[Rfam]
Purine riboswitch aptamer: a 99-nucleotide RNA from Holdemania filiformis. Riboswitches are metabolite binding domains within certain messenger RNAs that serve as precision sensors for their corresponding targets. The match comes from Rfam's covariance-model search (43 bits). The base pairs follow the family's consensus structure, which is taken from published work. On this family, see Mandal and Breaker, Nat Struct Mol Biol 2004: "Adenine riboswitches and gene activation by disruption of a transcription terminator". Lineage of the source: Bacteria > Bacillati > Bacillota > Erysipelotrichaceae > Holdemania.
RNA sequence: AGCAGUCAGAUUUGCAUUACUUGUAUAGGUGUCAAAUUUCGGCUGACACGUAUCUACCCACUGGCCUAUGUGUGGACUACAAGUAACCUUUUCCCCCAU
Numbered sequence: 001a002g003c004a005g006u007c008a009g010a011u012u013u014g015c016a017u018u019a020c021u022u023g024u025a026u027a028g029g030u031g032u033c034a035a036a037u038u039u040c041g042g043c044u045g046a047c048a049c050g051u052a053u054c055u056a057c058c059c060a061c062u063g064g065c066c067u068a069u070g071u072g073u074g075g076a077c078u079a080c081a082a083g084u085a086a087c088c089u090u091u092u093c094c095c096c097c098a099u
Stems, first nucleotide, its partner, number of pairs: 018085008029049006058075004064069001